Shown here is a 227-nucleotide part of an RNA from Thalassotalea algicola, a member of the family "Bacterial large subunit ribosomal RNA". Pairs were carried over by alignment from the consensus structure, which is taken from published work. The organism belongs to Thalassotalea, within Bacteria.
RNA sequence: GACUUAUUUUUUGUAGCAAGGUUAACCGAUUAGGGGAGCCGUAGCGAAAGCGAGUGUUAACUGCGCGUUUAGUUGCAAGGAAUAGACCCGAAACCCGGCGAUCUACCCAUGGGCAGGUUGAAGGUUGAGUAACAUCAACUGGAGGACCGAACACACGUAUGUUGAAAAAUGCGGUGAUGACUUGUGGGUCGGAGUGAAAGGCUAAUCAAGCCGGGAGAUAGCUGGUU
Numbered sequence: 001g002a003c004u005u006a007u008u009u010u011u012u013g014u015a016g017c018a019a020g021g022u023u024a025a026c027c028g029a030u031u032a033g034g035g036g037a038g039c040c041g042u043a044g045c046g047a048a049a050g051c052g053a054g055u056g057u058u059a060a061c062u063g064c065g066c067g068u069u070u071a072g073u074u075g076c077a078a079g080g081a082a083u084a085g086a087c088c089c090g091a092a093a094c095c096c097g098g099c100g101a102u103c104u105a106c107c108c109a110u111g112g113g114c115a116g117g118u119u120g121a122a123g124g125u126u127g128a129g130u131a132a133c134a135u136c137a138a139c140u141g142g143a144g145g146a147c148c149g150a151a152c153a154c155a156c157g158u159a160u161g162u163u164g165a166a167a168a169a170u171g172c173g174g175u176g177a178u179g180a181c182u183u184g185u186g187g188g189u190c191g192g193a194g195u196g197a198a199a200g201g202c203u204a205a206u207c208a209a210g211c212c213g214g215g216a217g218a219u220a221g222c223u224g225g226u227u
Stems, first nucleotide, its partner, number of pairs: 005084013020040004026034002044051002054066004087225002090222001094215006103191001105189009114179001116148004123140006152176003156173005193203003